[Rfam]
mir-27 microRNA precursor family: a 78-nucleotide sequence from Salarias fasciatus.
The organism belongs to Salarias, within Eukaryota.
Pairs were carried over by alignment from the consensus structure, which was predicted with RNAalifold.

RNA sequence: GUCAGGUGCAGAGUUUAGUCUGCUGCUGAACAGGGAGUCUGGCUUAUUUGUUCACAGUGGCUAAGUUCUGCAUUUGUA
Numbered sequence: 001g002u003c004a005g006g007u008g009c010a011g012a013g014u015u016u017a018g019u020c021u022g023c024u025g026c027u028g029a030a031c032a033g034g035g036a037g038u039c040u041g042g043c044u045u046a047u048u049u050g051u052u053c054a055c056a057g058u059g060g061c062u063a064a065g066u067u068c069u070g071c072a073u074u075u076g077u078a
Base pairs, nucleotide, nucleotide: 011068012067013066014065015064016063017062018061019060020059027054028053029052030051031050032049